Source information
MIR807 microRNA precursor family: a 174-nucleotide RNA sequence from Oryza sativa.
[Rfam]
RNA sequence: AACCACACUAUCGAUGAAUAAAUUCACCCGAGAUGACGUGUUUGUUUUACCUAGGACGAUGACAUGGCAUCCUAUUACCAGCGAUCGCACGAAAUUAAUAGGAUGCCACGUCCUCAUCCUAAAUAGAACAACCACGUCAUCUCAUAAAUGAAUCUAUUCAUAUGUAGUGUGGUU
Numbered sequence: 001a002a003c004c005a006c007a008c009u010a011u012c013g014a015u016g017a018a019u020a021a022a023u024u025c026a027c028c029c030g031a032g033a034u035g036a037c038g039u040g041u042u043u044g045u046u047u048u049a050c051c052u053a054g055g056a057c058g059a060u061g062a063c064a065u066g067g068c069a070u071c072c073u074a075u076u077a078c079c080a081g082c083g084a085u086c087g088c089a090c091g092a093a094a095u096u097a098a099u100a101g102g103a104u105g106c107c108a109c110g111u112c113c114u115c116a117u118c119c120u121a122a123a124u125a126g127a128a129c130a131a132c133c134a135c136g137u138c139a140u141c142u143c144a145u146a147a148a149u150g151a152a153u154c155u156a157u158u159c160a161u162a163u164g165u166a167g168u169g170u171g172g173u174u
Base pairs, nucleotide, nucleotide: 001174002173003172004171005170006169007168009166010165011164014161015160017158018157019156022153023152024151025150026149030143031142033140034139035138036137037136039134040133042131043130044129045128046127049124052121053120055118056117061112062111063110067106068105069104070103071102072101073100074099075098076097077096084095085094
The family has 30 seed sequences and 1,514 matches in Rfam 15.1.